RNA sequence: CGGCGAUCGGACCCUUUCGAGUGGAGAGUAUGGGAGUCGGCGGACAUGUGAGAGUUCCACCAUUAACCUCGUCCAGGCCACUCUCAUCUCGUCCGCCCGCUCGAGAGGUCGCGAUCGUC
Numbered sequence: 001c002g003g004c005g006a007u008c009g010g011a012c013c014c015u016u017u018c019g020a021g022u023g024g025a026g027a028g029u030a031u032g033g034g035a036g037u038c039g040g041c042g043g044a045c046a047u048g049u050g051a052g053a054g055u056u057c058c059a060c061c062a063u064u065a066a067c068c069u070c071g072u073c074c075a076g077g078c079c080a081c082u083c084u085c086a087u088c089u090c091g092u093c094c095g096c097c098c099g100c101u102c103g104a105g106a107g108g109u110c111g112c113g114a115u116c117g118u119c
Base pairs, nucleotide, nucleotide: 002119003118004117005116006115007114008113009112013108014107015106016105017104018103019102020101021100022099023094024093025092026090027089028088030087031086032085033084034083035082036081037080039078041076042074043073044072045071050070051069052068054067055066056065